Rfam assigns this 90-nucleotide RNA from Dactylosporangium sucinum to the family "ZMP/ZTP riboswitch aptamer (pfl RNA motif)". Taxonomically the source falls in Dactylosporangium (Bacteria, Actinomycetota, Micromonosporales, Micromonosporaceae).

[Rfam]
RNA sequence: CCUCGGUAUUGCGACUGGCGCAUUUCAAGGUGGAACCGACCACCGGGGAGCUUCCUAGCAUCGCUGGCACCGCGCGCCUGGGUGCCUCGA
Dot-bracket structure: ...[.[....[[..[[(((((........((((......))))..]]..]]....].]........[[[[[..)))))..]]]]].....
Numbered sequence: 001c002c003u004c005g006g007u008a009u010u011g012c013g014a015c016u017g018g019c020g021c022a023u024u025u026c027a028a029g030g031u032g033g034a035a036c037c038g039a040c041c042a043c044c045g046g047g048g049a050g051c052u053u054c055c056u057a058g059c060a061u062c063g064c065u066g067g068c069a070c071c072g073c074g075c076g077c078c079u080g081g082g083u084g085c086c087u088c089g090a
Stems, first nucleotide, its partner, number of pairs: 004058001006056001011051002015047002017078005030043004067085005
The base pairs follow the family's consensus structure, which is taken from published work. A search with the family's covariance model found it, with a score of 48 bits.